[Rfam]
RNA sequence: AGAUGGACUAGGUCGGGCGGUUUGGCCCCGCCCCUCGCCCGCGAAAUGGUCAUCAGCGGGGACCGAACGCCGUGGGAGUCCGGCCCGCCCGGGUCGGACCCCGGAAGCCGACGUCGAAACCUCGUCCUUCGGGGGCGACGGUCCGUCGUCUACGCGCCUGCAGGGGCGUCGUAGCACGGUUCGUCGGUGCGAUCCCGCCAGGCACGGAAGUGAGCAGCGGAGCACCGGACGGUCGUCGCUCGAAGGGUCGCGGGGUGGAGGAGGCGACCGGGACUAUCCGUCCCGGAACGGUCAGGCGACCACGGCCCGUCCACCA
Numbered sequence: 001a002g003a004u005g006g007a008c009u010a011g012g013u014c015g016g017g018c019g020g021u022u023u024g025g026c027c028c029c030g031c032c033c034c035u036c037g038c039c040c041g042c043g044a045a046a047u048g049g050u051c052a053u054c055a056g057c058g059g060g061g062a063c064c065g066a067a068c069g070c071c072g073u074g075g076g077a078g079u080c081c082g083g084c085c086c087g088c089c090c091g092g093g094u095c096g097g098a099c100c101c102c103g104g105a106a107g108c109c110g111a112c113g114u115c116g117a118a119a120c121c122u123c124g125u126c127c128u129u130c131g132g133g134g135g136c137g138a139c140g141g142u143c144c145g146u147c148g149u150c151u152a153c154g155c156g157c158c159u160g161c162a163g164g165g166g167c168g169u170c171g172u173a174g175c176a177c178g179g180u181u182c183g184u185c186g187g188u189g190c191g192a193u194c195c196c197g198c199c200a201g202g203c204a205c206g207g208a209a210g211u212g213a214g215c216a217g218c219g220g221a222g223c224a225c226c227g228g229a230c231g232g233u234c235g236u237c238g239c240u241c242g243a244a245g246g247g248u249c250g251c252g253g254g255g256u257g258g259a260g261g262a263g264g265c266g267a268c269c270g271g272g273a274c275u276a277u278c279c280g281u282c283c284c285g286g287a288a289c290g291g292u293c294a295g296g297c298g299a300c301c302a303c304g305g306c307c308c309g310u311c312c313a314c315c316a
Stems, first nucleotide, its partner, number of pairs: 002315001004313005011064004015033006038060005069306007078297003082293004089286005095280004100272005107265003112260001114258001119256007126246008134237005139231002141181001143179004148175002154169006184228007195220004203212003
The family of this 316-nucleotide RNA from Halarchaeum sp. CBA1220 is "Archaeal signal recognition particle RNA". The organism belongs to Halarchaeum, within Archaea. For this family Rfam cites "Prediction of signal recognition particle RNA genes" (Regalia et al., Nucleic Acids Res, 2002). The match comes from Rfam's covariance-model search (174 bits). By type it is a non-coding RNA gene.